[Rfam]
RNA sequence: GCGCUAUGAGGAAGAUCACACACACACUCCGACUUUCUCGUGAGGAGAUAAUUAAGAACGGAUAUCUGAGCGC
Dot-bracket structure: ((((.................................................................))))

The record is a 73-nucleotide RNA sequence from Caenorhabditis brenneri, which matches "Caenorhabditis snoRNA ceN89" in Rfam. The organism belongs to Caenorhabditis, within Eukaryota. The family's RNA type in Rfam is C/D-box small nucleolar RNA.